RNA sequence: GCAGAAAAAGCCAAACUCGUCGUGAGACGGGGGCGGAAAGCCAUGGGUCUUCAAGCAGAAGACAGCCGGGUUGCCUCCA
Numbered sequence: 001g002c003a004g005a006a007a008a009a010g011c012c013a014a015a016c017u018c019g020u021c022g023u024g025a026g027a028c029g030g031g032g033g034c035g036g037a038a039a040g041c042c043a044u045g046g047g048u049c050u051u052c053a054a055g056c057a058g059a060a061g062a063c064a065g066c067c068g069g070g071u072u073g074c075c076u077c078c079a
Stems, first nucleotide, its partner, number of pairs: 003076002011036002016031006034065001039072004044068003047063003
The family of this 79-nucleotide RNA from Candidatus Vecturithrix granuli is "c-di-GMP-I-GGC riboswitch aptamer". It scores 68 bits against the family's covariance model. The family's consensus secondary structure is taken from published work.